[Rfam]
Nucleotides: 078
Stems, first nucleotide, its partner, number of pairs: 022039003026035003058077008
Number, partner (000 for none) and nucleotide at each position: 001000u002000g003000a004000a005000a006000c007000c008000u009000u010000g011000a012000u013000a014000a015000u016000g017000c018000u019000a020000c021000a022039g023038g024037g025000c026035c027034u028033u029000u030000c031000a032000u033028a034027a035026g036000a037024c038023c039022c040000a041000g042000u043000g044000c045000c046000c047000a048000a049000u050000u051000u052000u053000u054000g055000c056000a057000g058077g059076c060075c061074c062073u063072u064071g065070c066000u067000g068000g069000a070065g071064c072063a073062a074061g075060g076059g077058c078000a